[Rfam]
RNA sequence: ACGACACCCCACGGGAGUCCGCGGCAGCGGGCUGAGAGGGAGCUGGAGCCGCUCCGACCGUCACACCUGAUCCGGGUCAUGCCGGCGAAGGAACGGACUGAGAUGACUGCU
Numbered sequence: 001a002c003g004a005c006a007c008c009c010c011a012c013g014g015g016a017g018u019c020c021g022c023g024g025c026a027g028c029g030g031g032c033u034g035a036g037a038g039g040g041a042g043c044u045g046g047a048g049c050c051g052c053u054c055c056g057a058c059c060g061u062c063a064c065a066c067c068u069g070a071u072c073c074g075g076g077u078c079a080u081g082c083c084g085g086c087g088a089a090g091g092a093a094c095g096g097a098c099u100g101a102g103a104u105g106a107c108u109g110c111u
Base pairs, nucleotide, nucleotide: 006099009096010095011061012060013059014058017032018031019030020029021028039055040054041053042052043051066091067090068089072085073084074083075082
RNA: TPP riboswitch aptamer (THI element)
Organism: Nocardioides sp. J9